Overview:
This 79-nucleotide RNA sequence from Alligator mississippiensis belongs to the Rfam family "Mammalian CPEB3 ribozyme". The base pairs follow the family's consensus structure, which is taken from published work. The match comes from Rfam's covariance-model search (36 bits).
RNA sequence: AGAGGUCACCAGUUUGAGGCCAUAGCAGAACUGUUCACAGUGCGGCUUGUCACAUUUCAACAAAUCUGUGAAUUCUGUU
Numbered sequence: 001a002g003a004g005g006u007c008a009c010c011a012g013u014u015u016g017a018g019g020c021c022a023u024a025g026c027a028g029a030a031c032u033g034u035u036c037a038c039a040g041u042g043c044g045g046c047u048u049g050u051c052a053c054a055u056u057u058c059a060a061c062a063a064a065u066c067u068g069u070g071a072a073u074u075c076u077g078u079u
Stems, first nucleotide, its partner, number of pairs: 018047004024079007032042002051068002054065004